[Rfam]
Nucleotides: 122
Base pairs, nucleotide, nucleotide: 007109008108009107010106011073012072013071014070017047018046019045020044021043054067055066056065057064058063078103079102080101081100084097085096086095087094
Number, partner (000 for none) and nucleotide at each position: 001000g002000g003000u004000g005000a006000a007109c008108g009107a010106c011073a012072g013071g014070g015000g016000a017047g018046c019045g020044u021043c022000g023000u024000c025000c026000g027000g028000c029000a030000c031000g032000c033000c034000g035000g036000g037000c038000a039000c040000c041000a042000g043021g044020a045019c046018g047017c048000u049000g050000a051000g052000a053000g054067u055066g056065c057064g058063g059000a060000c061000c062000u063058c064057c065056g066055c067054a068000g069000a070014c071013c072012c073011u074000c075000g076000a077000a078103c079102c080101u081100g082000a083000u084097c085096c086095g087094g088000u089000u090000c091000a092000c093000a094087c095086c096085g097084g098000c099000g100081u101080a102079g103078g104000g105000a106010g107009u108008c109007g110000g111000g112000a113000u114000u115000c116000u117000c118000g119000g120000g121000c122000c

Rfam assigns this 122-nucleotide sequence from Cellulomonas carbonis to the family "TPP riboswitch aptamer (THI element)". Vitamin B(1) in its active form thiamin pyrophosphate (TPP) is an essential coenzyme that is synthesised by coupling of pyrimidine and thiazole moieties in bacteria. Gene Ontology term of the family: thiamine pyrophosphate binding.